msiK RNA: a 57-nucleotide RNA from Aquiluna borgnonia. By type it is a cis-regulatory element. The family's consensus secondary structure is taken from published work.
RNA sequence: AGCGUUCACCCUCACAACGGAUCGUCCGGCACGUACCUGCCGGUGAAGGAGAAAAUC
Numbered sequence: 001a002g003c004g005u006u007c008a009c010c011c012u013c014a015c016a017a018c019g020g021a022u023c024g025u026c027c028g029g030c031a032c033g034u035a036c037c038u039g040c041c042g043g044u045g046a047a048g049g050a051g052a053a054a055a056u057c
Stems, first nucleotide, its partner, number of pairs: 009049002012046003026043006